antisense RNA of dnaA mRNA: an 81-nucleotide RNA sequence from Rheinheimera sp. SA_1.
NCBI's taxonomy places the organism under Bacteria, Pseudomonadati, Pseudomonadota, Gammaproteobacteria, Rheinheimera.
Gene Ontology term of the family: regulation of mRNA stability.
A reference for the family is Dadzie et al. (2013), "Identification and characterization of a cis-encoded antisense RNA associated with the replication process of Salmonella enterica serovar Typhi", PLoS One.
RNA sequence: UUUCGCGUCUGGUUUUUUCGCCAGAAUGCCGUUACCGACCGCAUGUAAUAAGUGAGUUUUACCAAGACCAGUGCCACCAUA
Numbered sequence: 001u002u003u004c005g006c007g008u009c010u011g012g013u014u015u016u017u018u019c020g021c022c023a024g025a026a027u028g029c030c031g032u033u034a035c036c037g038a039c040c041g042c043a044u045g046u047a048a049u050a051a052g053u054g055a056g057u058u059u060u061a062c063c064a065a066g067a068c069c070a071g072u073g074c075c076a077c078c079a080u081a
Stems, first nucleotide, its partner, number of pairs: 005042003010037004017031001020029002052077003056074002061072002